RNA: mir-1421 microRNA precursor family
Organism: Ornithorhynchus anatinus
RNA sequence: CGGUGUGGGGAGGUCACGCAUGAUGCAGCAUAUGCUAGUAUCAUACUGCACCACAUGUGUCCUCCUCACACAGU
Numbered sequence: 001c002g003g004u005g006u007g008g009g010g011a012g013g014u015c016a017c018g019c020a021u022g023a024u025g026c027a028g029c030a031u032a033u034g035c036u037a038g039u040a041u042c043a044u045a046c047u048g049c050a051c052c053a054c055a056u057g058u059g060u061c062c063u064c065c066u067c068a069c070a071c072a073g074u
Stems, first nucleotide, its partner, number of pairs: 003071005009065005015059004021053001024050004